[Rfam]
The record is an 88-nucleotide RNA sequence from Trichocoleus sp. FACHB-262, which matches "Glutamine riboswitch aptamer (glnA leader)" in Rfam. For this family Rfam cites "Bacterial aptamers that selectively bind glutamine" (Ames and Breaker, RNA Biol, 2011). Lineage of the source: Bacteria > Bacillati > Cyanobacteriota > Trichocoleusaceae > Trichocoleus. The family's consensus secondary structure is taken from published work.
RNA sequence: AUCGUUCAUUUCUUUGGAUGAGUUUAGUAAUUGACGACUAAAAGCAGCCAAGAAACGGAAGUAGGGAGUGAUCCCGAAGGAACGCGCC
Numbered sequence: 001a002u003c004g005u006u007c008a009u010u011u012c013u014u015u016g017g018a019u020g021a022g023u024u025u026a027g028u029a030a031u032u033g034a035c036g037a038c039u040a041a042a043a044g045c046a047g048c049c050a051a052g053a054a055a056c057g058g059a060a061g062u063a064g065g066g067a068g069u070g071a072u073c074c075c076g077a078a079g080g081a082a083c084g085c086g087c088c
Base pairs, nucleotide, nucleotide: 003084004083005082006081007080009055010054011053012052013051058085064075065074066073